[Rfam]
RNA sequence: CAUAGUUUUAUGAAGGUUUGUCUUAAAACCCACCCUGUGGAAAGGACAAACCUGAAGUAUUCGGUGUG
Number, nucleotide and partner (000 for none) at each position: 001c068002a067003u066004a065005g000006u000007u000008u000009u000010a000011u000012g000013a000014a000015g052016g051017u050018u049019u048020g047021u046022c045023u044024u043025a000026a000027a000028a000029c000030c040031c039032a038033c000034c000035c000036u000037g000038u032039g031040g030041a000042a000043a024044g023045g022046a021047c020048a019049a018050a017051c016052c015053u000054g000055a000056a000057g000058u000059a000060u000061u000062c000063g000064g000065u004066g003067u002068g001
RNA: Selenocysteine insertion sequence 1
Organism: Silurus meridionalis